The record is a 65-nucleotide sequence from Sciurus carolinensis, which matches "MAT2A 3'UTR stem loop A" in Rfam. The base pairs follow the family's consensus structure, which is taken from published work. NCBI's taxonomy places the organism under Eukaryota, Mammalia, Eutheria, Sciuridae, Sciurus. The family has 20 seed sequences and 595 matches in Rfam 15.1.
RNA sequence: GCCUUUAUUCCCCAGGCUUAUUGGUAUAGGCUACAGAGAAGACUUAAAGCUUUGAGGGAAAGGGC
Numbered sequence: 001g002c003c004u005u006u007a008u009u010c011c012c013c014a015g016g017c018u019u020a021u022u023g024g025u026a027u028a029g030g031c032u033a034c035a036g037a038g039a040a041g042a043c044u045u046a047a048a049g050c051u052u053u054g055a056g057g058g059a060a061a062g063g064g065c
Stems, first nucleotide, its partner, number of pairs: 001065004008059004013054004019047001023043001025041001027033001